[Rfam]
RNA sequence: UCUGUGGUUUAGGUAGUUUCAUGUUGUUGGGAUGGGCUUUUAGCUCUGCAACAAGAAACUGCCUUAAUUACGUC
Number, nucleotide and partner (000 for none) at each position: 001u000002c000003u072004g071005u070006g069007g068008u067009u066010u000011a064012g063013g062014u061015a060016g059017u058018u057019u056020c000021a000022u053023g052024u051025u050026g049027u048028u000029g046030g045031g044032a000033u000034g000035g000036g000037c000038u000039u000040u000041u000042a000043g000044c031045u030046c029047u000048g027049c026050a025051a024052c023053a022054a000055g000056a019057a018058a017059c016060u015061g014062c013063c012064u011065u000066a009067a008068u007069u006070a005071c004072g003073u000074c000
The family of this 74-nucleotide sequence from Edolisoma coerulescens is "mir-196 microRNA precursor family". The organism belongs to Edolisoma, within Eukaryota. The family's consensus secondary structure was predicted with PFOLD.